[Rfam]
RNA sequence: ACCACAAAUACGAAAUUACCUCAUAUAAUCCUUGGGAAUAUGGCCCAAAAGUUUCUACCUAAUAACCGUAAAUUAUUAGACUAUGAGGGGAAGUUCGGCAUUC
Numbered sequence: 001a002c003c004a005c006a007a008a009u010a011c012g013a014a015a016u017u018a019c020c021u022c023a024u025a026u027a028a029u030c031c032u033u034g035g036g037a038a039u040a041u042g043g044c045c046c047a048a049a050a051g052u053u054u055c056u057a058c059c060u061a062a063u064a065a066c067c068g069u070a071a072a073u074u075a076u077u078a079g080a081c082u083a084u085g086a087g088g089g090g091a092a093g094u095u096c097g098g099c100a101u102u103c
Stems, first nucleotide, its partner, number of pairs: 019088007029050001032048005059079007
Dot-bracket structure: ..................(((((((...(..(((((.......))))).)........(((((((.......)))))))..)))))))...............
Description: The family of this 103-nucleotide RNA sequence from Alkalihalobacillus alcalophilus is "Purine riboswitch aptamer". The match comes from Rfam's covariance-model search (82 bits). Rfam links the family to the GO term purine nucleobase biosynthetic process. The organism belongs to Alkalihalobacillus alcalophilus, within Bacteria.